The record is a 141-nucleotide RNA sequence from Hibiscus trionum, which matches "mir-166 microRNA precursor family" in Rfam. The literature on the family includes a 2001 paper in Cell by Ambros, "microRNAs: tiny regulators with great potential". Taxonomically the source falls in Hibiscus (Eukaryota, Viridiplantae, Spermatophyta, Gunneridae). Its family is annotated with RISC complex and miRNA-mediated post-transcriptional gene silencing in the Gene Ontology.

Nucleotides: 141
Stems, first nucleotide, its partner, number of pairs: 001141005008134006016126005024118001026116005
Number, partner (000 for none) and nucleotide at each position: 001141g002140g003139u004138g005137u006000a007000u008134g009133g010132a011131a012130u013129g014000a015000a016126g017125u018124u019123u020122g021000a022000u023000c024118c025000a026116a027115g028114a029113u030112c031000a032000a033000u034000c035000a036000u037000a038000u039000a040000u041000c042000u043000u044000u045000c046000c047000a048000a049000u050000u051000u052000c053000u054000u055000c056000c057000u058000u059000u060000u061000u062000a063000a064000g065000u066000u067000g068000u069000u070000a071000a072000u073000u074000a075000a076000u077000u078000g079000c080000u081000g082000u083000a084000a085000c086000u087000u088000g089000g090000g091000g092000g093000g094000a095000u096000u097000u098000u099000g100000a101000u102000g103000a104000u105000a106000u107000c108000a109000a110000u111000g112030g113029a114028u115027c116026u117000c118024g119000g120000a121000c122020c123019a124018g125017g126016c127000u128000u129013c130012a131011u132010u133009c134008c135000u136000c137005a138004c139003a140002c141001c